[Rfam]
RNA sequence: AGAACACACAUUAAUUAUCCCUUGGGUCAUGGGAUAAACAAAAACCCUGUAAAAACAAGUUAGCACACCUUAAAAUGGUUCUAGCCUGAUUACUAACCUAUGGAUUUGAUACCGAUUGAUGGGACAAACCU
Numbered sequence: 001a002g003a004a005c006a007c008a009c010a011u012u013a014a015u016u017a018u019c020c021c022u023u024g025g026g027u028c029a030u031g032g033g034a035u036a037a038a039c040a041a042a043a044a045c046c047c048u049g050u051a052a053a054a055a056c057a058a059g060u061u062a063g064c065a066c067a068c069c070u071u072a073a074a075a076u077g078g079u080u081c082u083a084g085c086c087u088g089a090u091u092a093c094u095a096a097c098c099u100a101u102g103g104a105u106u107u108g109a110u111a112c113c114g115a116u117u118g119a120u121g122g123g124a125c126a127a128a129c130c131u
Stems, first nucleotide, its partner, number of pairs: 009121008022108001024106002027103007049085001053080002056077002060073004
RNA: MIR845_2 microRNA precursor family
Organism: Vitis vinifera